[Rfam]
RNA sequence: UUAACUCAACUUAGUAUGGAAUUGGAACGUUGACCUACGUUUGCCGCUAGGGGCGCUGUUCCAACUCUAUACAGAUUUAACUUU
Number, nucleotide and partner (000 for none) at each position: 001u000002u000003a000004a000005c000006u000007c000008a078009a077010c000011u075012u074013a000014g072015u071016a070017u000018g068019g000020a066021a000022u064023u063024g062025g061026a060027a059028c058029g057030u000031u000032g000033a000034c052035c051036u050037a000038c000039g047040u046041u000042u000043g000044c000045c000046g040047c039048u000049a000050g036051g035052g034053g000054c000055g000056c000057u029058g028059u027060u026061c025062c024063a023064a022065c000066u020067c000068u018069a000070u016071a015072c014073a000074g012075a011076u000077u009078u008079a000080a000081c000082u000083u000084u000